Notes
The record is a 76-nucleotide RNA from Acrocephalus arundinaceus, which matches "Small nucleolar RNA SNORD26" in Rfam. Lineage of the source: Eukaryota > Sauria > Neoaves > Australaves > Acrocephalus. The family's RNA type in Rfam is C/D-box small nucleolar RNA. The family is grouped with related families in Rfam's "SNORD26 clan". The literature on the family includes a 1996 paper in Nature by Tycowski et al., "A mammalian gene with introns instead of exons generating stable RNA products". Rfam 15.1 lists 451 matches to the family in 401 species. It scores 62 bits against the family's covariance model.
[Rfam]
RNA sequence: CUGCAGGGAUGAUCACCCUGAACUCUCUCUUGCUGAUGGGUCAGUGGAGAAGCUUCUGGAACAAAUUCUGAGUGGC
Number, nucleotide and partner (000 for none) at each position: 001c075002u074003g073004c072005a000006g000007g000008g000009a000010u000011g000012a000013u000014c000015a000016c000017c000018c000019u000020g000021a000022a000023c000024u000025c000026u000027c000028u000029c000030u000031u000032g000033c000034u000035g000036a000037u000038g000039g000040g000041u000042c000043a000044g000045u000046g000047g000048a000049g000050a000051a000052g000053c000054u000055u000056c000057u000058g000059g000060a000061a000062c000063a000064a000065a000066u000067u000068c000069u000070g000071a000072g004073u003074g002075g001076c000